About this RNA: The family of this 147-nucleotide sequence is "IMES-3 RNA motif". The literature on the family includes a 2009 paper in Nature by Weinberg et al., "Exceptional structured noncoding RNAs revealed by bacterial metagenome analysis".

RNA sequence: AGGAUAAAAACUGGGGGGUAUUAGAAGUUUUGAAAUAUAUGAUAAGUUUAGGCUUUUAUAAAUUUCGAAUACGGACAAAACCAACCCCAGAAGCAAAGAGUUGAGAUCGUCCACAACCUUUUGGUUGGAUCGCAAUUUGAAGUUGGA
Numbered sequence: 001a002g003g004a005u006a007a008a009a010a011c012u013g014g015g016g017g018g019u020a021u022u023a024g025a026a027g028u029u030u031u032g033a034a035a036u037a038u039a040u041g042a043u044a045a046g047u048u049u050a051g052g053c054u055u056u057u058a059u060a061a062a063u064u065u066c067g068a069a070u071a072c073g074g075a076c077a078a079a080a081c082c083a084a085c086c087c088c089a090g091a092a093g094c095a096a097a098g099a100g101u102u103g104a105g106a107u108c109g110u111c112c113a114c115a116a117c118c119u120u121u122u123g124g125u126u127g128g129a130u131c132g133c134a135a136u137u138u139g140a141a142g143u144u145g146g147a
Stems, first nucleotide, its partner, number of pairs: 011090006017082003027072002029069001032066005038060005044055004099137005105131004114127005